small Cajal body-specific RNA 17: a 138-nucleotide RNA sequence from Vulpes vulpes. The source organism's lineage runs through Eukaryota, Euteleostomi, Sarcopterygii, Mammalia and Vulpes. Its family is annotated with RNA processing, Cajal body and nucleolus in the Gene Ontology. From the family's description: scaRNAs are a specific class of small nuclear RNAs which localise to the Cajal bodies and guide the modification of RNA polymerase II transcribed spliceosomal RNAs U1, U2, U4, U5 and U12. The complete human U12-22/U4-8 scaRNA is composed of two tandem C/D box domains (termed U12-22 and U4-8). For this family Rfam cites "Cajal body-specific small nuclear RNAs: a novel class of 2'-O-methylation and pseudouridylation guide RNAs" (Darzacq et al., EMBO J, 2002).
RNA sequence: ACCCCGAGUCCCCAAUGUAGCCCCCUCGUGAGCUCGCGGUAUUUUCCUUAUAUGAUCGAGCUCCGCUCGGCGCCGCUGGCCCGGAGCCCGAGAGGAUUAUGAAAACGUGUGGGGUGAGGUGGGGCUGGGGACCGGGGC
Numbered sequence: 001a002c003c004c005c006g007a008g009u010c011c012c013c014a015a016u017g018u019a020g021c022c023c024c025c026u027c028g029u030g031a032g033c034u035c036g037c038g039g040u041a042u043u044u045u046c047c048u049u050a051u052a053u054g055a056u057c058g059a060g061c062u063c064c065g066c067u068c069g070g071c072g073c074c075g076c077u078g079g080c081c082c083g084g085a086g087c088c089c090g091a092g093a094g095g096a097u098u099a100u101g102a103a104a105a106c107g108u109g110u111g112g113g114g115u116g117a118g119g120u121g122g123g124g125c126u127g128g129g130g131a132c133c134g135g136g137g138c
Stems, first nucleotide, its partner, number of pairs: 002137002005135001008132006020125005056091003060087002063084002065080002068075002